[Rfam]
Nucleotides: 136
Stems, first nucleotide, its partner, number of pairs: 007041003011037007061084005095131011
Number, partner (000 for none) and nucleotide at each position: 001000c002000c003000a004000a005000g006000a007041c008040c009039g010000a011037c012036c013035g014034a015033g016032c017031c018000u019000c020000u021000c022000c023000u024000c025000c026000u027000c028000c029000c030000u031017g032016g033015c034014u035013c036012g037011g038000u039009c040008g041007g042000a043000c044000u045000u046000u047000c048000g049000g050000c051000a052000a053000g054000a055000g056000a057000u058000c059000g060000a061084u062083c063082g064081c065080c066000c067000c068000u069000c070000c071000u072000c073000c074000u075000c076000c077000c078000u079000g080065g081064g082063u083062g084061a085000u086000c087000g088000u089000a090000a091000a092000a093000u094000g095131a096130a097129c098128c099127g100126c101125g102124g103123u104122g105121c106000c107000u108000c109000u110000c111000c112000u113000c114000c115000u116000c117000c118000c119000u120000g121105g122104c123103a124102u125101c126100g127099c128098g129097g130096u131095u132000u133000u134000u135000u136000u